[Rfam]
RNA sequence: CGUUUUAAAUAGCCGAAAGUUCCCAUAUUAACUUUCUAGGAACGCGGGGGAUUUUUAAUGACACUGAGCGCGAAAAACAGCUCAAUGUUUGGGGUUAAUCGCAAUUGCGUAGGGUUGUCUUCCUUCAAUCCGCACCCGGCAACUAACCUCGUAGGCAAACAAAAAGGAGGCA
Numbered sequence: 001c002g003u004u005u006u007a008a009a010u011a012g013c014c015g016a017a018a019g020u021u022c023c024c025a026u027a028u029u030a031a032c033u034u035u036c037u038a039g040g041a042a043c044g045c046g047g048g049g050g051a052u053u054u055u056u057a058a059u060g061a062c063a064c065u066g067a068g069c070g071c072g073a074a075a076a077a078c079a080g081c082u083c084a085a086u087g088u089u090u091g092g093g094g095u096u097a098a099u100c101g102c103a104a105u106u107g108c109g110u111a112g113g114g115u116u117g118u119c120u121u122c123c124u125u126c127a128a129u130c131c132g133c134a135c136c137c138g139g140c141a142a143c144u145a146a147c148c149u150c151g152u153a154g155g156c157a158a159a160c161a162a163a164a165a166g167g168a169g170g171c172a
Stems, first nucleotide, its partner, number of pairs: 012156003019043005044152006054091001092137003100109003112131004
Dot-bracket structure: ...........(((....(((((...............)))))((((((....(....................................)(((.....(((....)))..((((............))))...))).........)))))).)))................